[Rfam]
RNA sequence: CUCAAGGAGUGUUAUAUCAAACGAAAGUAGUUGAGCAAUUGCAAAAUACGAAAUCGGACACAAUGAAUUGAGAA
Number, nucleotide and partner (000 for none) at each position: 001c072002u071003c070004a069005a068006g000007g000008a000009g061010u060011g059012u058013u057014a000015u000016a000017u000018c000019a000020a000021a000022c056023g055024a054025a000026a000027g000028u000029a000030g049031u048032u000033g000034a000035g042036c041037a000038a000039u000040u000041g036042c035043a000044a000045a000046a000047u000048a031049c030050g000051a000052a000053a000054u024055c023056g022057g013058a012059c011060a010061c009062a000063a000064u000065g000066a000067a000068u005069u004070g003071a002072g001073a000074a000
RNA: RAGATH-18 RNA